[Rfam]
Rfam assigns this 117-nucleotide sequence from Serratia symbiotica to the family "Group II catalytic intron D1-D4-2".

RNA sequence: GAGGGUAGGCCCCUCGGAGGCGGUGUCCAGACGCAGCCUUCAAACUACCCUGAGCUGCUGCCGUUAAGAGCGGUGGUGGUGAGCGUCAGGGAAAAGGCGCAGUCAGAUGCGUCAUGU
Numbered sequence: 001g002a003g004g005g006u007a008g009g010c011c012c013c014u015c016g017g018a019g020g021c022g023g024u025g026u027c028c029a030g031a032c033g034c035a036g037c038c039u040u041c042a043a044a045c046u047a048c049c050c051u052g053a054g055c056u057g058c059u060g061c062c063g064u065u066a067a068g069a070g071c072g073g074u075g076g077u078g079g080u081g082a083g084c085g086u087c088a089g090g091g092a093a094a095a096g097g098c099g100c101a102g103u104c105a106g107a108u109g110c111g112u113c114a115u116g117u
Base pairs, nucleotide, nucleotide: 001015002014003013004012005011016041017040018039019038020037021036023034024033025032026031046116048091049090050089051088052087053086054080055079057077058076059075061073062072063071064070096113097112098111099110100109101108